Rfam assigns this 161-nucleotide sequence from Nelumbo nucifera to the family "small nucleolar RNA snoR143".
RNA sequence: UUGCACUUGUAUCAUAGGCCUCUCUAAUUCUUGUAGGGAGGUCUUGAGCUAGGUGCAUAAAGAAAAAGCUGUUCAAUCAGCAGCGGCCAGACAACCGUAAAGAUGAAUCCACAGGUGAUUGGCUUAUUUUGCCAUUCAGCUACUGAUUUCAUCUUACAUCA
Numbered sequence: 001u002u003g004c005a006c007u008u009g010u011a012u013c014a015u016a017g018g019c020c021u022c023u024c025u026a027a028u029u030c031u032u033g034u035a036g037g038g039a040g041g042u043c044u045u046g047a048g049c050u051a052g053g054u055g056c057a058u059a060a061a062g063a064a065a066a067a068g069c070u071g072u073u074c075a076a077u078c079a080g081c082a083g084c085g086g087c088c089a090g091a092c093a094a095c096c097g098u099a100a101a102g103a104u105g106a107a108u109c110c111a112c113a114g115g116u117g118a119u120u121g122g123c124u125u126a127u128u129u130u131g132c133c134a135u136u137c138a139g140c141u142a143c144u145g146a147u148u149u150c151a152u153c154u155u156a157c158a159u160c161a
Stems, first nucleotide, its partner, number of pairs: 002057005009049002012047003016044011100155008117137002120134003
The base pairs follow the family's consensus structure, which was predicted with RNAalifold. The family's RNA type in Rfam is H/ACA-box small nucleolar RNA. Gene Ontology terms of the family: nucleolus and RNA processing. NCBI's taxonomy places the organism under Eukaryota, Viridiplantae, Spermatophyta, Proteales, Nelumbo.